[Rfam]
Nucleotides: 084
Base pairs, nucleotide, nucleotide: 013047014046016044017043018042021084022083023082024081025080026079027078028041029040030039051073052072054071055070056069057068
Number, partner (000 for none) and nucleotide at each position: 001000a002000a003000g004000a005000a006000u007000g008000u009000u010000c011000a012000g013047g014046g015000g016044g017043u018042c019000a020000c021084a022083g023082c024081a025080g026079g027078a028041g029040c030039g031000u032000u033000a034000a035000a036000u037000g038000u039030c040029g041028c042018g043017g044016u045000a046014c047013c048000g049000g050000u051073c052072g053000a054071a055070c056069c057068c058000u059000u060000g061000u062000a063000c064000u065000g066000a067000u068057g069056g070055g071054u072052c073051g074000u075000g076000a077000a078027u079026c080025c081024u082023g083022c084021u